This 84-nucleotide RNA from Leptidea sinapis belongs to the Rfam family "mir-981 microRNA precursor family". Rfam 15.1 lists 180 matches to the family in 170 species. It scores 83 bits against the family's covariance model. The source organism's lineage runs through Eukaryota, Dicondylia, Glossata, Dismorphiinae and Leptidea.
RNA sequence: CCGUACAGCAUUCGGGUUUCGCGACAAUAGAACCGUUUAUAAACAAUAUUGGUUCGUUGUCGACGAAACCUGCAAAAUGUACGG
Numbered sequence: 001c002c003g004u005a006c007a008g009c010a011u012u013c014g015g016g017u018u019u020c021g022c023g024a025c026a027a028u029a030g031a032a033c034c035g036u037u038u039a040u041a042a043a044c045a046a047u048a049u050u051g052g053u054u055c056g057u058u059g060u061c062g063a064c065g066a067a068a069c070c071u072g073c074a075a076a077a078u079g080u081a082c083g084g
Stems, first nucleotide, its partner, number of pairs: 001084006013072009030055005